Annotation: Shown here is an 83-nucleotide sequence from Alca torda, a member of the family "Small nucleolar RNA SNORD72". The match comes from Rfam's covariance-model search (54 bits). Taxonomically the source falls in Alca (Eukaryota, Bilateria, Craniata, Dipnotetrapodomorpha). The pairing is the family consensus, mapped onto this sequence. The family's RNA type in Rfam is C/D-box small nucleolar RNA. On this family, see Huttenhofer et al., EMBO J 2001: "RNomics: an experimental approach that identifies 201 candidates for novel, small, non-messenger RNAs in mouse". Rfam links the family to the GO terms nucleolus and RNA processing.
RNA sequence: CACUUGUUAGUAAGAUGUUUCUUAUUAAAAAUGUCUGAACAUACAAACUGUAUAGUGAUUUCAGUGCGUUACUGAGAUAAGCU
Numbered sequence: 001c002a003c004u005u006g007u008u009a010g011u012a013a014g015a016u017g018u019u020u021c022u023u024a025u026u027a028a029a030a031a032u033g034u035c036u037g038a039a040c041a042u043a044c045a046a047a048c049u050g051u052a053u054a055g056u057g058a059u060u061u062c063a064g065u066g067c068g069u070u071a072c073u074g075a076g077a078u079a080a081g082c083u
Stems, first nucleotide, its partner, number of pairs: 003081006